Shown here is a 135-nucleotide sequence from Capsicum annuum, a member of the family "Small nucleolar RNA snoR111". A search with the family's covariance model found it, with a score of 73 bits. The family's RNA type in Rfam is H/ACA-box small nucleolar RNA. Rfam 15.1 lists 533 matches to the family in 223 species.
RNA sequence: UCGAAUGAUGAACAAUUAUUUUUGUGUGUUUCAUCAUUAUUAUGUGAAUUUAUAGGAGGCAAAGUAAUAUUGACGAGAUAUCGUUUCGAUCGUCAUUUUUUUUCCAUUGACGAUUUGAUUGUUGCUCGUCUACAU
Numbered sequence: 001u002c003g004a005a006u007g008a009u010g011a012a013c014a015a016u017u018a019u020u021u022u023u024g025u026g027u028g029u030u031u032c033a034u035c036a037u038u039a040u041u042a043u044g045u046g047a048a049u050u051u052a053u054a055g056g057a058g059g060c061a062a063a064g065u066a067a068u069a070u071u072g073a074c075g076a077g078a079u080a081u082c083g084u085u086u087c088g089a090u091c092g093u094c095a096u097u098u099u100u101u102u103u104c105c106a107u108u109g110a111c112g113a114u115u116u117g118a119u120u121g122u123u124g125c126u127c128g129u130c131u132a133c134a135u
Stems, first nucleotide, its partner, number of pairs: 001042001003040001005037008072130001074128004080119004089114007097106001